[Rfam]
RNA sequence: AAUGACAGGUAUUUUCUUCAUAUAGUAUAAAUCUUUUGCUUUUUACUAAAGAUUUUCAUGGAGAGGAACAUUUAUGAAUUUUUCACUAAUUUUGAGAGCCAGUGAGGUGUAGUGGU
Numbered sequence: 001a002a003u004g005a006c007a008g009g010u011a012u013u014u015u016c017u018u019c020a021u022a023u024a025g026u027a028u029a030a031a032u033c034u035u036u037u038g039c040u041u042u043u044u045a046c047u048a049a050a051g052a053u054u055u056u057c058a059u060g061g062a063g064a065g066g067a068a069c070a071u072u073u074a075u076g077a078a079u080u081u082u083u084c085a086c087u088a089a090u091u092u093u094g095a096g097a098g099c100c101a102g103u104g105a106g107g108u109g110u111a112g113u114g115g116u
Base pairs, nucleotide, nucleotide: 006076009069010068013066014065015064016063017062018061019060020059029055030054031053032052033051034050035049036048097116099115100114101113103111104110